A member of the RNA family "Plastid-psbA-1 3UTR RNA" from Oryza meridionalis, 118 nucleotides long. The organism belongs to Oryza, within Eukaryota. A search with the family's covariance model found it, with a score of 55 bits. It is annotated as a cis-regulatory element.
[Rfam]
RNA sequence: CCGAAGUUUCAUCUCUUAUGGAUAAUGCUUUUCUUCUAACGGGUAGCAAUAUUCAAAGGAAGGAAACCUGAAAAUACUCAAUAUCUUAUUCCAGUAAGAUAUUUGGUAUUUCUUAGUU
Numbered sequence: 001c002c003g004a005a006g007u008u009u010c011a012u013c014u015c016u017u018a019u020g021g022a023u024a025a026u027g028c029u030u031u032u033c034u035u036c037u038a039a040c041g042g043g044u045a046g047c048a049a050u051a052u053u054c055a056a057a058g059g060a061a062g063g064a065a066a067c068c069u070g071a072a073a074a075u076a077c078u079c080a081a082u083a084u085c086u087u088a089u090u091c092c093a094g095u096a097a098g099a100u101a102u103u104u105g106g107u108a109u110u111u112c113u114u115a116g117u118u
Base pairs, nucleotide, nucleotide: 008022009021010020011019012018065118066117067116070113072111073110074109075108076107077106080103081102083100084099085098086097087096